[Rfam]
RNA sequence: AUUUAUUUUUUAAUAUUUUCUAAUAAAAUUUUAAAUCUGUUCUUAUCAGUUUAAUAUCUGAUAUGUCCUCUAUCUGAGGACUAUAUAUUAAAUGGAUUUUUGGAACAGGGAGAUGGAAUAGGAGCUUGCUCCAUUCACUCCAUGCAUUGACCUGGUAUUGCAGUACUACCAGGAACGGUGCACCUCCC
Numbered sequence: 001a002u003u004u005a006u007u008u009u010u011u012a013a014u015a016u017u018u019u020c021u022a023a024u025a026a027a028a029u030u031u032u033a034a035a036u037c038u039g040u041u042c043u044u045a046u047c048a049g050u051u052u053a054a055u056a057u058c059u060g061a062u063a064u065g066u067c068c069u070c071u072a073u074c075u076g077a078g079g080a081c082u083a084u085a086u087a088u089u090a091a092a093u094g095g096a097u098u099u100u101u102g103g104a105a106c107a108g109g110g111a112g113a114u115g116g117a118a119u120a121g122g123a124g125c126u127u128g129c130u131c132c133a134u135u136c137a138c139u140c141c142a143u144g145c146a147u148u149g150a151c152c153u154g155g156u157a158u159u160g161c162a163g164u165a166c167u168a169c170c171a172g173g174a175a176c177g178g179u180g181c182a183c184c185u186c187c188c
Base pairs, nucleotide, nucleotide: 007023008022044063045062046061047060048059049058065081066080067079068078069077070076109141110140111139112138115135116134121132122131123130124129144181145180146179147178148177149176151173152172153171154170155169156168